[Rfam]
RNA sequence: CCCACACCCAUGUGUGUAGGACUUCAAAGGAUCACCAUUAAAUUUGGCACAGAUUUUUAGAAAAGUUAUCACAUCGGUGUGAUACUUGAAUUUUUUAGGGAUCUGUGCCAAAGUUAAUGGUGAUCUUUUGGGGUCCUACACACAUAGGUGUGGG
Numbered sequence: 001c002c003c004a005c006a007c008c009c010a011u012g013u014g015u016g017u018a019g020g021a022c023u024u025c026a027a028a029g030g031a032u033c034a035c036c037a038u039u040a041a042a043u044u045u046g047g048c049a050c051a052g053a054u055u056u057u058u059a060g061a062a063a064a065g066u067u068a069u070c071a072c073a074u075c076g077g078u079g080u081g082a083u084a085c086u087u088g089a090a091u092u093u094u095u096u097a098g099g100g101a102u103c104u105g106u107g108c109c110a111a112a113g114u115u116a117a118u119g120g121u122g123a124u125c126u127u128u129u130g131g132g133g134u135c136c137u138a139c140a141c142a143c144a145u146a147g148g149u150g151u152g153g154g
Stems, first nucleotide, its partner, number of pairs: 002153007010145004015140014030125003034121008043112022066089003069082005

The family of this 154-nucleotide RNA from Amborella trichopoda is "MIR8565 microRNA precursor family". Taxonomically the source falls in Amborella (Eukaryota, Streptophytina, Embryophyta, Tracheophyta). Pairs were carried over by alignment from the consensus structure, which was predicted with RNAalifold.